[Rfam]
RNA: freshwater-2 RNA
RNA sequence: UUUGACCUAAAGUCAAAGUCUUAUGCAGUAAUAACCCACUGCGUACCGGAUAGAACCCGGAUUGGACUUCUAAAAUAGGAGAAAACAAAUG
Numbered sequence: 001u002u003u004g005a006c007c008u009a010a011a012g013u014c015a016a017a018g019u020c021u022u023a024u025g026c027a028g029u030a031a032u033a034a035c036c037c038a039c040u041g042c043g044u045a046c047c048g049g050a051u052a053g054a055a056c057c058c059g060g061a062u063u064g065g066a067c068u069u070c071u072a073a074a075a076u077a078g079g080a081g082a083a084a085a086c087a088a089a090u091g
Stems, first nucleotide, its partner, number of pairs: 001017006022045007046060004
Dot-bracket structure: ((((((.....))))))....(((((((..........)))))))((((.......))))...............................